Shown here is a 181-nucleotide RNA sequence from Streptomyces spinoverrucosus, a member of the family "c-di-AMP riboswitch aptamer (ydaO/yuaA leader)". Rfam's curators write: This family represents a conserved RNA structure found upstream of the ydaO and yuaA genes in Bacillus subtilis and related genes in other bacteria. Taxonomically the source falls in Streptomyces (Bacteria, Actinomycetota, Actinomycetes, Kitasatosporales).
RNA sequence: ACCCAUGACUCACUCACUCACCGCACGGCAGGAGCGGGGGACCCAGGUAAGUUGCCGAGCCGGACGUCGUACGCCACGACACACCGGAACGGCUUGGGGUGAAGUCGCACUCGCAAGGGCGCGGCCGGGCACCUCCCCGCCCGAACCCGACAGCUCACCUCGUAGGCGUCGGAGAGGACAU
Numbered sequence: 001a002c003c004c005a006u007g008a009c010u011c012a013c014u015c016a017c018u019c020a021c022c023g024c025a026c027g028g029c030a031g032g033a034g035c036g037g038g039g040g041a042c043c044c045a046g047g048u049a050a051g052u053u054g055c056c057g058a059g060c061c062g063g064a065c066g067u068c069g070u071a072c073g074c075c076a077c078g079a080c081a082c083a084c085c086g087g088a089a090c091g092g093c094u095u096g097g098g099g100u101g102a103a104g105u106c107g108c109a110c111u112c113g114c115a116a117g118g119g120c121g122c123g124g125c126c127g128g129g130c131a132c133c134u135c136c137c138c139g140c141c142c143g144a145a146c147c148c149g150a151c152a153g154c155u156c157a158c159c160u161c162g163u164a165g166g167c168g169u170c171g172g173a174g175a176g177g178a179c180a181u
Stems, first nucleotide, its partner, number of pairs: 011168001013166002018033002034163006044096005097148003105124004127142004